[Rfam]
RNA sequence: UCGGAUGAGAAUAAUCUUAGACAUUACUUAAAUGUAAGGCCGAAGAAGCAAAAAAAAGAAUUUAUCUUAAUCUUUUUUGAAACUGACAGGCAAAAGGAAGAUUAUUUGACGAAGCUUUGGAGAGAACGGAUACCGUCGCCUACGUGGCUAUAACCAACUGGCAAAAGGACAGAGUA
Numbered sequence: 001u002c003g004g005a006u007g008a009g010a011a012u013a014a015u016c017u018u019a020g021a022c023a024u025u026a027c028u029u030a031a032a033u034g035u036a037a038g039g040c041c042g043a044a045g046a047a048g049c050a051a052a053a054a055a056a057a058g059a060a061u062u063u064a065u066c067u068u069a070a071u072c073u074u075u076u077u078u079g080a081a082a083c084u085g086a087c088a089g090g091c092a093a094a095a096g097g098a099a100g101a102u103u104a105u106u107u108g109a110c111g112a113a114g115c116u117u118u119g120g121a122g123a124g125a126a127c128g129g130a131u132a133c134c135g136u137c138g139c140c141u142a143c144g145u146g147g148c149u150a151u152a153a154c155c156a157a158c159u160g161g162c163a164a165a166a167g168g169a170c171a172g173a174g175u176a
Base pairs, nucleotide, nucleotide: 001112002111003110010106011105012104013103014102015101016100017099022038024037025036026035027034039091040090041089045087047084048083052078053077054076055075056074057073058072059071061070062069115174116173117172118171119170124137126136127135128134129133138162139161140160144158146155147154
This 176-nucleotide RNA from Terrisporobacter glycolicus belongs to the Rfam family "glycine-GGAnGA riboswitch aptamer". Its Rfam clan is "Glycine riboswitch clan". It is one of the family's seed sequences. Gene Ontology term of the family: glycine biosynthetic process.